[Rfam]
Shown here is a 116-nucleotide sequence from Legionella israelensis, a member of the family "Group II catalytic intron D1-D4-2". Group II introns are found in rRNA, tRNA and mRNA of organelles in fungi, plants and protists, and also in mRNA in bacteria. The literature on the family includes a 2001 paper in Trends Genet by Bonen and Vogel, "The ins and outs of group II introns". Taxonomically the source falls in Legionella (Bacteria, Pseudomonadati, Legionellales, Legionellaceae). Pairs were carried over by alignment from the consensus structure.
RNA sequence: GGUGGUAGGCCCACCGAGAUCGAUCACCAGCGGUAGAUCUCAAACCACCUCAUGCGGCGGCUGUUAAGAGCAGUGGUCGUGAGUGAUGAGGAACGUCAGACAAUGAUCUGGCAAGG
Numbered sequence: 001g002g003u004g005g006u007a008g009g010c011c012c013a014c015c016g017a018g019a020u021c022g023a024u025c026a027c028c029a030g031c032g033g034u035a036g037a038u039c040u041c042a043a044a045c046c047a048c049c050u051c052a053u054g055c056g057g058c059g060g061c062u063g064u065u066a067a068g069a070g071c072a073g074u075g076g077u078c079g080u081g082a083g084u085g086a087u088g089a090g091g092a093a094c095g096u097c098a099g100a101c102a103a104u105g106a107u108c109u110g111g112c113a114a115g116g
Base pairs, nucleotide, nucleotide: 001015002014003013004012005011016041017040018039019038020037021036023034024033025032045116046115048091049090050089051088052087053086054080055079057077058076061073062072063071064070095112096111097110098109099108100107